[Rfam]
RNA sequence: UCGAUCCUCAGGUAGGUGAGGCUCCCGUGUGACACACAGGCCGCUGCCCAGAAGUAUCCAAAGAUACGGCGCAACAGGGUAGAACAGGCACUCCCGGAUUAAGGGUUUGCCUAAGGCGGCUGAGGCGAUAAGCGUCUCUUACGGUGCACGGUGCUGAAGCUUGAACGAGUGGGGGAAUC
Numbered sequence: 001u002c003g004a005u006c007c008u009c010a011g012g013u014a015g016g017u018g019a020g021g022c023u024c025c026c027g028u029g030u031g032a033c034a035c036a037c038a039g040g041c042c043g044c045u046g047c048c049c050a051g052a053a054g055u056a057u058c059c060a061a062a063g064a065u066a067c068g069g070c071g072c073a074a075c076a077g078g079g080u081a082g083a084a085c086a087g088g089c090a091c092u093c094c095c096g097g098a099u100u101a102a103g104g105g106u107u108u109g110c111c112u113a114a115g116g117c118g119g120c121u122g123a124g125g126c127g128a129u130a131a132g133c134g135u136c137u138c139u140u141a142c143g144g145u146g147c148a149c150g151g152u153g154c155u156g157a158a159g160c161u162u163g164a165a166c167g168a169g170u171g172g173g174g175g176a177a178u179c
Base pairs, nucleotide, nucleotide: 005175006174007173008172009171010170011166013102015161016160017159020155021154022153025151026150027149028148029147030146032145033144040120041119042118043117044116046080047079048078049077055066056065057064058063087111088110089109090108093105094104095103122138123137124136125135126134
Record summary
Shown here is a 179-nucleotide RNA from Syntrophobacter fumaroxidans, a member of the family "M-box riboswitch aptamer (ykoK leader)". M-box riboswitch, also know as ykoK leader is described as a metaloregulatory RNA that sense divalent metals and function as a genetic control element of genes related to divalent metal transport in bacteria. The sequence is in the family's curated seed alignment.